Shown here is a 92-nucleotide RNA sequence from Desulfosporosinus fructosivorans, a member of the family "c-di-GMP-I riboswitch aptamer". About the family: GEMM was predicted in a large-scale screen for bacterial structured RNA regulatory elements. Taxonomically the source falls in Desulfosporosinus (Bacteria, Clostridia, Eubacteriales, Desulfitobacteriaceae).
[Rfam]
RNA sequence: UAGAACCAAGGGCAAACCUACCAAAAGGCAGGGACGCAAAGCCGUAGGAUCUAAGGUGCUUCCUAAAGCGCUAUGAUAGCCUGGUUGCCGGA
Numbered sequence: 001u002a003g004a005a006c007c008a009a010g011g012g013c014a015a016a017c018c019u020a021c022c023a024a025a026a027g028g029c030a031g032g033g034a035c036g037c038a039a040a041g042c043c044g045u046a047g048g049a050u051c052u053a054a055g056g057u058g059c060u061u062c063c064u065a066a067a068g069c070g071c072u073a074u075g076a077u078a079g080c081c082u083g084g085u086u087g088c089c090g091g092a
Stems, first nucleotide, its partner, number of pairs: 012037002017032003021028002040086004046082003049077003056071006